[Rfam]
RNA sequence: GGCAGUGACACGGGGUGCCCUUGGCGGGCUGAGAAAGACACCCGUUGAACCUGAUCUAGUUAGCACUAGCGAAGGGAUGUCCUGCCGGUUUCUU
Dot-bracket structure: ......((((((((.(((((.....))))........)..)))).....(((...((((......))))...)))..)))).............